[Rfam]
RNA: Group II catalytic intron D1-D4-6
RNA sequence: GAAAUCCUGCCUGAAAAGGUUGAAGCCCAACCAUCAGUAGCGAGUCUUGAACCGAACAAAGCAAUUUGGGCGGUUAAGCGUAGACAGGUAGGAUGUAGGCCUGAAAGUGAUAGAGCCCCGAAAUGAGUAAGAUGGGAAGGUCGACGACAUCGGAAUAUCGGAAGACAACAUCGCAACCAUCGAUACGGGCGAGAUGGUCGCGGCUUCCCCGGGGUCGUAGAGCC
Numbered sequence: 001g002a003a004a005u006c007c008u009g010c011c012u013g014a015a016a017a018g019g020u021u022g023a024a025g026c027c028c029a030a031c032c033a034u035c036a037g038u039a040g041c042g043a044g045u046c047u048u049g050a051a052c053c054g055a056a057c058a059a060a061g062c063a064a065u066u067u068g069g070g071c072g073g074u075u076a077a078g079c080g081u082a083g084a085c086a087g088g089u090a091g092g093a094u095g096u097a098g099g100c101c102u103g104a105a106a107g108u109g110a111u112a113g114a115g116c117c118c119c120g121a122a123a124u125g126a127g128u129a130a131g132a133u134g135g136g137a138a139g140g141u142c143g144a145c146g147a148c149a150u151c152g153g154a155a156u157a158u159c160g161g162a163a164g165a166c167a168a169c170a171u172c173g174c175a176a177c178c179a180u181c182g183a184u185a186c187g188g189g190c191g192a193g194a195u196g197g198u199c200g201c202g203g204c205u206u207c208c209c210c211g212g213g214g215u216c217g218u219a220g221a222g223c224c
Base pairs, nucleotide, nucleotide: 011037012036013035014034018032019031021029022028025190026189041087044085045084046083047082048080049079050075051074052073053072054071057068058067059066060065112218113216115215116214117213118212119211120210134209135208136207137206138205139204140166141165142164145160146159147158171203172202173201174200176198177197178196179195180194181193